[Rfam]
RNA sequence: GGCCCAUAAAUUGCUGAUCUACCCUCAUCCCGGGCUAUCAACGUCGACAGCCCUCACCACUUCACGACAAAGGCGCCGU
Numbered sequence: 001g002g003c004c005c006a007u008a009a010a011u012u013g014c015u016g017a018u019c020u021a022c023c024c025u026c027a028u029c030c031c032g033g034g035c036u037a038u039c040a041a042c043g044u045c046g047a048c049a050g051c052c053c054u055c056a057c058c059a060c061u062u063c064a065c066g067a068c069a070a071a072g073g074c075g076c077c078g079u
Base pairs, nucleotide, nucleotide: 032052033051035050036049038047039046
Rfam assigns this 79-nucleotide RNA sequence from Pseudomonas putida to the family "narK RNA".
Rfam classes the family as a cis-regulatory element.